Rfam assigns this 54-nucleotide RNA sequence from Coregonus sp. 'balchen' to the family "UnaL2 LINE 3' element". The family's consensus secondary structure is taken from published work. Rfam describes the family as follows. The eel long interspersed element (LINE) UnaL2 and its partner short interspersed element (SINE) share a conserved 3' tail containing a stem-loop that is critical for their retrotransposition.
RNA sequence: CCGUGUCCAAUUUGUAAAUCGCUCUGGAUGAGAGCGUCUGCUAAAUGACUUCAA
Number, nucleotide and partner (000 for none) at each position: 001c000002c000003g000004u000005g000006u000007c000008c000009a000010a000011u000012u000013u043014g041015u040016a039017a000018a000019u000020c036021g035022c034023u033024c032025u031026g000027g000028a000029u000030g000031a025032g024033a023034g022035c021036g020037u000038c000039u016040g015041c014042u000043a013044a000045a000046u000047g000048a000049c000050u000051u000052c000053a000054a000